[Rfam]
RNA sequence: UCCUGCGGGAGGCCGGCUAAGAACGGUCACGUCCUGUGACCAACGUCGGCAUUAGAACUUCCUGUUCG
Numbered sequence: 001u002c003c004u005g006c007g008g009g010a011g012g013c014c015g016g017c018u019a020a021g022a023a024c025g026g027u028c029a030c031g032u033c034c035u036g037u038g039a040c041c042a043a044c045g046u047c048g049g050c051a052u053u054a055g056a057a058c059u060u061c062c063u064g065u066u067c068g
Stems, first nucleotide, its partner, number of pairs: 012050006026040005055067004